[Rfam]
RNA: mir-1 microRNA precursor family
RNA sequence: GUCAGAUGUGCAUAGAUCCUUACGGUUCAUAUAAAGACGCACUUUAUAUGAACCGUAAGGAUCUAUGCACAUCUGAC
Numbered sequence: 001g002u003c004a005g006a007u008g009u010g011c012a013u014a015g016a017u018c019c020u021u022a023c024g025g026u027u028c029a030u031a032u033a034a035a036g037a038c039g040c041a042c043u044u045u046a047u048a049u050g051a052a053c054c055g056u057a058a059g060g061a062u063c064u065a066u067g068c069a070c071a072u073c074u075g076a077c
Base pairs, nucleotide, nucleotide: 007071008070009069010068011067012066013065014064015063016062017061018060019059020058021057022056023055024054025053027051028050029049030048031047
Dot-bracket structure: ......(((((((((((((((((((.(((((...............))))).)))))))))))))))))))......